[Rfam]
RNA sequence: GGAGGUAGGCCCUCCGGAGCCGCCCUGCGGGGGAGGCUCCAAACCACCGUGUGCUGCGGAAGCGGUGACGCGACCGUGGUGAGCGACACGGCAAAAGGCGGCCGUGAGCCGUCAGGU
Numbered sequence: 001g002g003a004g005g006u007a008g009g010c011c012c013u014c015c016g017g018a019g020c021c022g023c024c025c026u027g028c029g030g031g032g033g034a035g036g037c038u039c040c041a042a043a044c045c046a047c048c049g050u051g052u053g054c055u056g057c058g059g060a061a062g063c064g065g066u067g068a069c070g071c072g073a074c075c076g077u078g079g080u081g082a083g084c085g086a087c088a089c090g091g092c093a094a095a096a097g098g099c100g101g102c103c104g105u106g107a108g109c110c111g112u113c114a115g116g117u
Base pairs, nucleotide, nucleotide: 001015002014003013004012005011016040017039018038019037020036021035023033024032025031026030045116047091048090049089050088051087052086053080054079056077057076058075062071063070097113098112099111100110101109102108
Shown here is a 117-nucleotide RNA sequence from Nocardiopsis eucommiae, a member of the family "Group II catalytic intron D1-D4-2". Rfam describes the family as follows. Group II introns are found in rRNA, tRNA and mRNA of organelles in fungi, plants and protists, and also in mRNA in bacteria. On this family, see Bonen and Vogel, Trends Genet 2001: "The ins and outs of group II introns". Its family is annotated with Group II intron splicing in the Gene Ontology. A search with the family's covariance model found it, with a score of 89 bits.